[Rfam]
RNA sequence: UGCCGAAAAGGUAAACCUGGAGCGAUCCGGGGGCGCAAAGCCAUGGACCUCCUUGAGGCCGCCAGGCUGCCGAAG
Dot-bracket structure: (.(.......((...((((((....))))))..[))..((((.(((.((.......))..])))))))...)..)
Numbered sequence: 001u002g003c004c005g006a007a008a009a010g011g012u013a014a015a016c017c018u019g020g021a022g023c024g025a026u027c028c029g030g031g032g033g034c035g036c037a038a039a040g041c042c043a044u045g046g047a048c049c050u051c052c053u054u055g056a057g058g059c060c061g062c063c064a065g066g067c068u069g070c071c072g073a074a075g
Stems, first nucleotide, its partner, number of pairs: 001075001003072001011036002016031006034061001039068004044064003048058002